[Rfam]
RNA sequence: GUCAUCGUGAGGUAGGGUCUGAAGAAAGCGUGGAGCAAAUCCGCGACCCGAUGGACAAGAACCGGAUAACGAGGCCUACCCGACCGGACGAGCGAGCAAAUGAUCGCGAAGUCCACAGCAAUCGAGGGUCGGGGUGGUAAAUUCGGCGGGUAUGUGGAGAAGGCGGAACGC
Numbered sequence: 001g002u003c004a005u006c007g008u009g010a011g012g013u014a015g016g017g018u019c020u021g022a023a024g025a026a027a028g029c030g031u032g033g034a035g036c037a038a039a040u041c042c043g044c045g046a047c048c049c050g051a052u053g054g055a056c057a058a059g060a061a062c063c064g065g066a067u068a069a070c071g072a073g074g075c076c077u078a079c080c081c082g083a084c085c086g087g088a089c090g091a092g093c094g095a096g097c098a099a100a101u102g103a104u105c106g107c108g109a110a111g112u113c114c115a116c117a118g119c120a121a122u123c124g125a126g127g128g129u130c131g132g133g134g135u136g137g138u139a140a141a142u143u144c145g146g147c148g149g150g151u152a153u154g155u156g157g158a159g160a161a162g163g164c165g166g167a168a169c170g171c
Stems, first nucleotide, its partner, number of pairs: 002015001004013003028171004035164002040158006046151005062146006074138003079133006086114004092107004

A member of the RNA family "Group II catalytic intron D1-D4-3" from Bradyrhizobium sp. LMTR 3, 171 nucleotides long. Rfam links the family to the GO term Group II intron splicing. A search with the family's covariance model found it, with a score of 136 bits. Rfam 15.1 lists 4,274 matches to the family in 1,585 species.